[Rfam]
Nucleotides: 311
Stems, first nucleotide, its partner, number of pairs: 002079003006040006012033006041063003045059004085310003091304003097140006104134005110129002113126001115122002148301006156281002159278003163275002166272002169269001171250004176245002183239008192209005211227006251266006283295004
Number, partner (000 for none) and nucleotide at each position: 001000u002079g003078g004077a005000c006040u007039g008038g009037a010036a011035g012033g013032g014031u015030u016029g017028g018000a019000u020000c021000c022000a023000a024000a025000g026000c027000c028017u029016c030015a031014g032013u033012c034000u035011c036010u037009u038008c039007c040006a041063c042062u043061u044000u045059c046058a047057u048056g049000a050000g051000u052000a053000a054000a055000c056048c057047a058046u059045g060000c061043a062042a063041g064000g065000a066000a067000a068000g069000a070000u071000c072000u073000u074000g075000a076000a077004u078003c079002c080000u081000a082000g083000c084000u085310u086309c087308a088000a089000u090000u091304g092303c093302c094000a095000a096000g097140u098139c099138a100137c101136g102135u103000u104134g105133u106132u107131c108130u109000a110129u111128c112000u113126u114000a115122g116121c117000u118000g119000g120000a121116g122115c123000u124000u125000g126113a127000u128111g129110g130108a131107g132106a133105a134104u135102a136101c137100g138099u139098g140097a141000a142000a143000a144000g145000c146000g147000u148301c149300g150299u151298c152297u153296c154000u155000c156281u157280g158000u159278c160277a161276u162000a163275u164274g165000a166272a167271u168000a169269u170000u171250c172249u173248c174247g175000u176245c177244a178000g179000g180000u181000c182000g183239u184238c185237a186236a187235a188234c189233a190232g191000a192209a193208u194207u195206g196205a197000a198000u199000a200000g201000u202000a203000u204000a205196u206195c207194a208193a209192u210000g211227c212226g213225a214224a215223c216222a217000a218000a219000a220000a221000g222216u223215g224214u225213u226212c227211g228000a229000u230000u231000g232190u233189u234188g235187u236186u237185u238184g239183a240000a241000a242000a243000g244177u245176g246000u247174c248173g249172a250171g251266g252265u253264c254263g255262c256261u257000a258000c259000a260000g261256a262255g263254u264253g265252a266251c267000g268000u269169a270000a271167g272166u273000g274164c275163a276161a277160u278159g279000u280157c281156a282000u283295g284294u285293u286292c287000u288000u289000a290000a291000c292286g293285a294284a295283c296153g297152a298151g299150a300149c301148g302093g303092g304091c305000u306000a307000a308087u309086g310085a311000g